[Rfam]
Nucleotides: 085
Base pairs, nucleotide, nucleotide: 012038013037017032018031019030020029022027041079042078043077044076046075047074048073049070050069051068056064057063
Number, partner (000 for none) and nucleotide at each position: 001000u002000u003000a004000a005000g006000u007000a008000a009000a010000a011000a012038g013037c014000a015000a016000a017032c018031c019030c020029g021000c022027c023000g024000a025000a026000a027022g028000a029020c030019g031018g032017g033000a034000u035000a036000c037013g038012c039000a040000a041079a042078g043077c044076u045000a046075u047074g048073g049070g050069u051068c052000u053000a054000a055000g056064g057063c058000u059000a060000a061000a062000u063057g064056c065000u066000a067000u068051g069050a070049u071000u072000g073048c074047c075046a076044g077043g078042u079041u080000a081000c082000c083000g084000a085000a

Shown here is an 85-nucleotide RNA sequence from Desulfosporosinus acididurans, a member of the family "c-di-GMP-I riboswitch aptamer".
Taxonomically the source falls in Desulfosporosinus (Bacteria, Bacillota, Eubacteriales, Desulfitobacteriaceae).
GEMM was predicted in a large-scale screen for bacterial structured RNA regulatory elements.